The family of this 81-nucleotide RNA from Betta splendens is "Small nucleolar RNA snR60/Z15/Z230/Z193/J17".
The family has 23 seed sequences and 3,592 matches in Rfam 15.1.
Rfam links the family to the GO terms RNA processing and nucleolus.
Pairs were carried over by alignment from the consensus structure.
It is annotated as a C/D-box small nucleolar RNA.
RNA sequence: UUGAUGCAAUGAUGAGCUCAUAGUUCAGCAGAUUAUUGAUGAAGACCAUCUAUUGUCUUUCGCACCUAUCUGAUGUAUCUA
Numbered sequence: 001u002u003g004a005u006g007c008a009a010u011g012a013u014g015a016g017c018u019c020a021u022a023g024u025u026c027a028g029c030a031g032a033u034u035a036u037u038g039a040u041g042a043a044g045a046c047c048a049u050c051u052a053u054u055g056u057c058u059u060u061c062g063c064a065c066c067u068a069u070c071u072g073a074u075g076u077a078u079c080u081a
Base pairs, nucleotide, nucleotide: 004078005077006076007075008074